[Rfam]
The family of this 119-nucleotide sequence from Fonticella tunisiensis is "Group II catalytic intron D1-D4-2". The match comes from Rfam's covariance-model search (104 bits). The family has 144 seed sequences and 1,231 matches in Rfam 15.1.
RNA sequence: GAGGGUAGGCCCCUCGAAAUCACUAUACAGGUAGGGAUUUCAAAUCACCUUAAGGUGCUAUUGUCAAAAGCAAUGGUAUUGAGCAUUAAGGAAAAGGCAAGACAAAAGAUUUUGUCAGA
Numbered sequence: 001g002a003g004g005g006u007a008g009g010c011c012c013c014u015c016g017a018a019a020u021c022a023c024u025a026u027a028c029a030g031g032u033a034g035g036g037a038u039u040u041c042a043a044a045u046c047a048c049c050u051u052a053a054g055g056u057g058c059u060a061u062u063g064u065c066a067a068a069a070g071c072a073a074u075g076g077u078a079u080u081g082a083g084c085a086u087u088a089a090g091g092a093a094a095a096g097g098c099a100a101g102a103c104a105a106a107a108g109a110u111u112u113u114g115u116c117a118g119a
Stems, first nucleotide, its partner, number of pairs: 001015005016041006023034004045119002048091006054080002057077003061073004096116006